[Rfam]
RNA sequence: AGGAGGAACAACCGCAGUGGCGGGGCAGCUCUGAAAACCUGGAUUCAGCCCCCGCAGGAACUCUGAAGCACUCUGCCUGCAGGGCCUGGAGGCUCCGGGGCGGG
Numbered sequence: 001a002g003g004a005g006g007a008a009c010a011a012c013c014g015c016a017g018u019g020g021c022g023g024g025g026c027a028g029c030u031c032u033g034a035a036a037a038c039c040u041g042g043a044u045u046c047a048g049c050c051c052c053c054g055c056a057g058g059a060a061c062u063c064u065g066a067a068g069c070a071c072u073c074u075g076c077c078u079g080c081a082g083g084g085c086c087u088g089g090a091g092g093c094u095c096c097g098g099g100g101c102g103g104g
Stems, first nucleotide, its partner, number of pairs: 002096004009088002012084002019077007028069003032065002035062001038058004
RNA: mir-8834 microRNA precursor family
Organism: Canis lupus